A member of the RNA family "raiA RNA", 250 nucleotides long.
[Rfam]
RNA sequence: CCCGUUCGGGUCCGUGGUUGCGCCGGGCCGGCCCCCUGGGGGCGGGCCUGGCUAGCCGAUGCCAGCCGCAGGCGAAACGGCCCACGUAAGGCGACUCUUCGUCGACCGAUCACGGUGCGGCUUAGAGGUAAGUCCUGCCUUCCCGGGGGGCCGGAUGUCCCCCGUACGAAGAGAAGGGUAGUAGUGGCGGGAGUGCCGCGAACCCCUCAGCAGGCGGAUGUGGGGACGAAGACCAGGUCGGCCGGACGGG
Numbered sequence: 001c002c003c004g005u006u007c008g009g010g011u012c013c014g015u016g017g018u019u020g021c022g023c024c025g026g027g028c029c030g031g032c033c034c035c036c037u038g039g040g041g042g043c044g045g046g047c048c049u050g051g052c053u054a055g056c057c058g059a060u061g062c063c064a065g066c067c068g069c070a071g072g073c074g075a076a077a078c079g080g081c082c083c084a085c086g087u088a089a090g091g092c093g094a095c096u097c098u099u100c101g102u103c104g105a106c107c108g109a110u111c112a113c114g115g116u117g118c119g120g121c122u123u124a125g126a127g128g129u130a131a132g133u134c135c136u137g138c139c140u141u142c143c144c145g146g147g148g149g150g151c152c153g154g155a156u157g158u159c160c161c162c163c164g165u166a167c168g169a170a171g172a173g174a175a176g177g178g179u180a181g182u183a184g185u186g187g188c189g190g191g192a193g194u195g196c197c198g199c200g201a202a203c204c205c206c207u208c209a210g211c212a213g214g215c216g217g218a219u220g221u222g223g224g225g226a227c228g229a230a231g232a233c234c235a236g237g238u239c240g241g242c243c244g245g246a247c248g249g250g
Stems, first nucleotide, its partner, number of pairs: 001250009012241003015235005059221003062072001064122007081115002086110001090106001093102001113228001134214005139171004175207004184199005